The record is a 90-nucleotide RNA, which matches "Small nucleolar RNA SNORD35" in Rfam. Rfam links the family to the GO terms RNA processing and nucleolus. The base pairs follow the family's consensus structure, which was predicted with PFOLD. Its Rfam clan is "SNORD35 clan". The literature on the family includes a 1996 paper in J Mol Biol by Nicoloso et al., "Intron-encoded, antisense small nucleolar RNAs: the characterization of nine novel species points to their direct role as guides for the 2'-O-ribose methylation of rRNAs". Rfam describes the family as follows. U35 is a C/D box snoRNA located in intron 6 of ribosomal protein L13A and intron 3 of ribosomal protein S11 in humans and at homologous positions in mouse and chicken ribosomal protein genes. U35 guides the methylation of 2'-O-ribose sites in 28S rRNA.
[Rfam]
RNA sequence: GGCACAUGAUGUUCUUAUUCUCACGAUGGUCUUCGGAUGCCACAGUUAGGGCAGUGCCGAUAAUGCCAAAGGCUAAGCUGAUGCCAGGAG
Numbered sequence: 001g002g003c004a005c006a007u008g009a010u011g012u013u014c015u016u017a018u019u020c021u022c023a024c025g026a027u028g029g030u031c032u033u034c035g036g037a038u039g040c041c042a043c044a045g046u047u048a049g050g051g052c053a054g055u056g057c058c059g060a061u062a063a064u065g066c067c068a069a070a071g072g073c074u075a076a077g078c079u080g081a082u083g084c085c086a087g088g089a090g
Base pairs, nucleotide, nucleotide: 001085002084003083004082